The record is a 173-nucleotide sequence from Petrotoga mobilis, which matches "Group II catalytic intron D1-D4-3" in Rfam. The pairing is the family consensus, mapped onto this sequence. About the family: Group II introns are found in rRNA, tRNA and mRNA of organelles in fungi, plants and protists, and also in mRNA in bacteria.
RNA sequence: CCCACCGUGAGGUGGAAUCUGAAGGAAGCUGGAGGCAAAAUCCCGGCCUGAUGAACAAGAACUGCAUACAAGGCUGAAUUGAAGUGGAUGAGUUUACUGAACAAAACGAAGUCCGACACUGCCCGAAUUUCAUACAGUAAAUGUGGCGGGUAGCUGAAAUGAAAGCUAUCGUA
Numbered sequence: 001c002c003c004a005c006c007g008u009g010a011g012g013u014g015g016a017a018u019c020u021g022a023a024g025g026a027a028g029c030u031g032g033a034g035g036c037a038a039a040a041u042c043c044c045g046g047c048c049u050g051a052u053g054a055a056c057a058a059g060a061a062c063u064g065c066a067u068a069c070a071a072g073g074c075u076g077a078a079u080u081g082a083a084g085u086g087g088a089u090g091a092g093u094u095u096a097c098u099g100a101a102c103a104a105a106a107c108g109a110a111g112u113c114c115g116a117c118a119c120u121g122c123c124c125g126a127a128u129u130u131c132a133u134a135c136a137g138u139a140a141a142u143g144u145g146g147c148g149g150g151u152a153g154c155u156g157a158a159a160u161g162a163a164a165g166c167u168a169u170c171g172u173a
Stems, first nucleotide, its partner, number of pairs: 002015005030171003035166002040160002044156002046151005062146006073138003078133002081131004086114004092107004